[Rfam]
RNA sequence: AGAAUAUAAGAAACUGUCUCUUUACUUUUAACUAAAAAUGCUAAAAACCGACUUUUAAAUAUCUUAUUUAAGAAUCGGUUCUUAGCAUUUUUAGCUAAGAGUUAAUAGACAGUUUUUGAUAUUCC
Numbered sequence: 001a002g003a004a005u006a007u008a009a010g011a012a013a014c015u016g017u018c019u020c021u022u023u024a025c026u027u028u029u030a031a032c033u034a035a036a037a038a039u040g041c042u043a044a045a046a047a048c049c050g051a052c053u054u055u056u057a058a059a060u061a062u063c064u065u066a067u068u069u070a071a072g073a074a075u076c077g078g079u080u081c082u083u084a085g086c087a088u089u090u091u092u093a094g095c096u097a098a099g100a101g102u103u104a105a106u107a108g109a110c111a112g113u114u115u116u117u118g119a120u121a122u123u124c125c
Base pairs, nucleotide, nucleotide: 002124003123004122005121006120007119009117010116011115012114013113014112015111016110017109018108019107021105022104024102025101026100027099028098029097030096032094033093034092035091036090037089038088039087041085042084043083044082046080047079
Shown here is a 125-nucleotide RNA sequence from Brassica cretica, a member of the family "MIR9563 microRNA precursor family". Rfam links the family to the GO terms miRNA-mediated post-transcriptional gene silencing and RISC complex. Lineage of the source: Eukaryota > Euphyllophyta > Spermatophyta > Brassicaceae > Brassica. The match comes from Rfam's covariance-model search (93 bits). The family has 2 seed sequences and 5,832 matches in Rfam 15.1.